[Rfam]
RNA sequence: GCUAUUAUGCGCAGGCCAGCCUCAUUAUUUUCCUGAUUAAUGAAAGCGGUGUGCGUAACAACGUGCGUGAAUAAUUUUCAGAAGUCU
Numbered sequence: 001g002c003u004a005u006u007a008u009g010c011g012c013a014g015g016c017c018a019g020c021c022u023c024a025u026u027a028u029u030u031u032c033c034u035g036a037u038u039a040a041u042g043a044a045a046g047c048g049g050u051g052u053g054c055g056u057a058a059c060a061a062c063g064u065g066c067g068u069g070a071a072u073a074a075u076u077u078u079c080a081g082a083a084g085u086c087u
Stems, first nucleotide, its partner, number of pairs: 015050003019047002022043006051066006
RNA: Peptidase-S11 RNA
Organism: Kosakonia radicincitans